[Rfam]
RNA: DUF3800-VIII RNA
RNA sequence: GUGGCCUUCCCGUCACCGAAGCCCUGCGUUCCACGCGGGGUAUUGAUGUAGGUGGCGGCGGGGCCAU
Numbered sequence: 001g002u003g004g005c006c007u008u009c010c011c012g013u014c015a016c017c018g019a020a021g022c023c024c025u026g027c028g029u030u031c032c033a034c035g036c037g038g039g040g041u042a043u044u045g046a047u048g049u050a051g052g053u054g055g056c057g058g059c060g061g062g063g064c065c066a067u
Stems, first nucleotide, its partner, number of pairs: 001067008010058004015053003021041009